A member of the RNA family "ylbH leader" from Halalkalibacter oceani, 124 nucleotides long.
It scores 91 bits against the family's covariance model.
For this family Rfam cites "New RNA motifs suggest an expanded scope for riboswitches in bacterial genetic control" (Barrick et al., Proc Natl Acad Sci U S A, 2004).
Gene Ontology term of the family: regulation of gene expression.

RNA sequence: AGAAAAAAACCUCACAAGGAUGUCCUUGUGAGGUGCCUAUAUGCAUAUAUUCAUAUGCUUGUAGGCUAUGGGAGAGGAGAAACCGGAGGAAGAACUUAUGGGGAAACGUAAGCCUUCUCCGCGG
Numbered sequence: 001a002g003a004a005a006a007a008a009a010c011c012u013c014a015c016a017a018g019g020a021u022g023u024c025c026u027u028g029u030g031a032g033g034u035g036c037c038u039a040u041a042u043g044c045a046u047a048u049a050u051u052c053a054u055a056u057g058c059u060u061g062u063a064g065g066c067u068a069u070g071g072g073a074g075a076g077g078a079g080a081a082a083c084c085g086g087a088g089g090a091a092g093a094a095c096u097u098a099u100g101g102g103g104a105a106a107c108g109u110a111a112g113c114c115u116u117c118u119c120c121g122c123g124g
Base pairs, nucleotide, nucleotide: 011032012031013030014029015028016027017026018025019024036072037071038070039069040068043058044057045056046055047054084121085120086119087118089117090116091115092114095112096111097110098109
Dot-bracket structure: ..........(((((((((....)))))))))...(((((..(((((......))))).........)))))...........((((.((((..((((..........)))).))))))))...
Notes:
The organism belongs to Halalkalibacter, within Bacteria. The base pairs follow the family's consensus structure. It is annotated as a cis-regulatory leader.